The family of this 65-nucleotide RNA from Arcicella sp. is "DUF805 RNA".

[Rfam]
RNA sequence: UAAACAUGGAGUCCAGAAACCAUUAAAACGGGGCGUUACCGAAAAGCCAUAAGAGUAGGAACGGU
Numbered sequence: 001u002a003a004a005c006a007u008g009g010a011g012u013c014c015a016g017a018a019a020c021c022a023u024u025a026a027a028a029c030g031g032g033g034c035g036u037u038a039c040c041g042a043a044a045a046g047c048c049a050u051a052a053g054a055g056u057a058g059g060a061a062c063g064g065u
Stems, first nucleotide, its partner, number of pairs: 006023004032048003039059002
Record summary
The match comes from Rfam's covariance-model search (72 bits). The family is grouped with related families in Rfam's "DUF805 clan". It is annotated as a cis-regulatory element.